[Rfam]
RNA sequence: CAGCGGGAGUUCUCCUUGGGGAGUAGCCUGCUUCCGCUUCGUGGAAGCCGCGCCGUCAACAUCCUUGGCCUGAAUCGGCCAUGGCGGCGCGACCUGACGGUUGGCGAGACCAACGAGCGGCGGACGUAGCCCGGUCGGGCGCGGACGUUGUUCGUUCGUCCGCACGAAGUCCCGACCGUUC
Number, nucleotide and partner (000 for none) at each position: 001c000002a000003g000004c000005g000006g000007g000008a000009g000010u000011u000012c000013u000014c000015c000016u000017u000018g000019g000020g000021g000022a000023g000024u000025a000026g000027c000028c000029u000030g048031c047032u046033u000034c000035c000036g000037c000038u000039u000040c000041g000042u000043g000044g000045a000046a032047g031048c030049c091050g090051c089052g088053c087054c086055g085056u084057c083058a082059a000060c000061a000062u000063c000064c000065u000066u081067g080068g079069c078070c077071u000072g000073a000074a000075u000076c000077g070078g069079c068080c067081a066082u058083g057084g056085c055086g054087g053088c052089g051090c050091g049092a180093c000094c178095u000096g176097a000098c174099g000100g000101u000102u000103g000104g000105c000106g000107a000108g000109a000110c000111c000112a000113a000114c000115g000116a000117g000118c000119g000120g000121c000122g000123g000124a000125c000126g000127u000128a000129g000130c000131c000132c000133g000134g000135u000136c000137g000138g000139g000140c000141g000142c000143g000144g000145a000146c000147g000148u000149u000150g000151u000152u000153c000154g000155u000156u000157c000158g000159u000160c000161c000162g000163c000164a000165c000166g000167a000168a000169g000170u000171c000172c000173c000174g098175a000176c096177c000178g094179u000180u092181c000

This 181-nucleotide sequence from Pseudoxanthomonas composti belongs to the Rfam family "Manganese Mn2+ riboswitch aptamer (yybP-ykoY)".